Rfam assigns this 95-nucleotide RNA sequence from Aotus nancymaae to the family "Small nucleolar RNA SNORD116". By type it is a C/D-box small nucleolar RNA. The source organism's lineage runs through Eukaryota, Deuterostomia, Gnathostomata, Theria and Aotus. A search with the family's covariance model found it, with a score of 88 bits. Rfam 15.1 lists 3,260 matches to the family in 170 species. The family's consensus secondary structure was predicted with PFOLD.
Nucleotides: 095
Stems, first nucleotide, its partner, number of pairs: 001095005028058005034050003
Number, partner (000 for none) and nucleotide at each position: 001095g002094g003093a004092u005091c006000g007000u008000u009000g010000a011000u012000g013000a014000g015000u016000c017000c018000c019000c020000a021000g022000u023000a024000a025000a026000a027000g028058c029057a030056u031055u032054c033000c034050u035049u036048a037000g038000a039000a040000a041000a042000a043000c044000u045000g046000a047000a048036u049035a050034a051000a052000a053000u054032g055031a056030g057029u058028g059000a060000a061000a062000a063000c064000u065000c066000a067000u068000a069000c070000c071000g072000u073000c074000g075000u076000u077000c078000u079000c080000a081000u082000c083000a084000g085000a086000a087000c088000u089000g090000a091005g092004g093003u094002c095001c